[Rfam]
RNA: mir-205 microRNA precursor family
Organism: Aquarana catesbeiana
RNA sequence: UGCCAGUGUCCUUCAUUCCACCGGAUCCUGUGCUAAUAACAUCCAGAUUCCCAGUGGCAUGAAGUGCAUCAGCUG
Numbered sequence: 001u002g003c004c005a006g007u008g009u010c011c012u013u014c015a016u017u018c019c020a021c022c023g024g025a026u027c028c029u030g031u032g033c034u035a036a037u038a039a040c041a042u043c044c045a046g047a048u049u050c051c052c053a054g055u056g057g058c059a060u061g062a063a064g065u066g067c068a069u070c071a072g073c074u075g
Stems, first nucleotide, its partner, number of pairs: 011064006019056003023051003028046003
Dot-bracket structure: ..........((((((..(((.(((..(((.............)))..)))..)))..))))))...........